[Rfam]
Shown here is a 97-nucleotide RNA from Tetracentron sinense, a member of the family "Plastid-rps12 3UTR RNA". A search with the family's covariance model found it, with a score of 108 bits. NCBI's taxonomy places the organism under Eukaryota, Euphyllophyta, Spermatophyta, Trochodendraceae, Tetracentron. The family's RNA type in Rfam is cis-regulatory element. From the family's description: Plastid rpl20 is a non-coding RNA (ncRNA) recognised in plastids. It was found in the three prime untranslated region (3UTR) of rps12 gene, its 3UTR location sugest a role in transcript maduration.
RNA sequence: GGUUUCCAUUGGUGCAAAUCCAAUCACCUCAAUUUUAGAUGAGAAGGAAUUCCCCAUUGGUAGGAAAUAGUUAUCUAUUAAGUGGGGGACAUAGUAU
Numbered sequence: 001g002g003u004u005u006c007c008a009u010u011g012g013u014g015c016a017a018a019u020c021c022a023a024u025c026a027c028c029u030c031a032a033u034u035u036u037a038g039a040u041g042a043g044a045a046g047g048a049a050u051u052c053c054c055c056a057u058u059g060g061u062a063g064g065a066a067a068u069a070g071u072u073a074u075c076u077a078u079u080a081a082g083u084g085g086g087g088g089a090c091a092u093a094g095u096a097u
Base pairs, nucleotide, nucleotide: 009023010022011021012020052087053086054085055084056078057077059075060074061073062072063071